Mammalian CPEB3 ribozyme: a 78-nucleotide RNA sequence from Alligator mississippiensis. Rfam links the family to the GO term RNA nuclease activity. The base pairs follow the family's consensus structure, which is taken from published work.
[Rfam]
RNA sequence: AGGGUUUUGUAGGAAGCCAUAGCAGAAGUGUUCACAUCAUGACCACUGUCAGAUUCCAACAAAUAUGCAAAUUCUGCU
Numbered sequence: 001a002g003g004g005u006u007u008u009g010u011a012g013g014a015a016g017c018c019a020u021a022g023c024a025g026a027a028g029u030g031u032u033c034a035c036a037u038c039a040u041g042a043c044c045a046c047u048g049u050c051a052g053a054u055u056c057c058a059a060c061a062a063a064u065a066u067g068c069a070a071a072u073u074c075u076g077c078u
Base pairs, nucleotide, nucleotide: 013046016043018041021078022077023076024075025074026073027072028040029039030038050067051066053064054063055062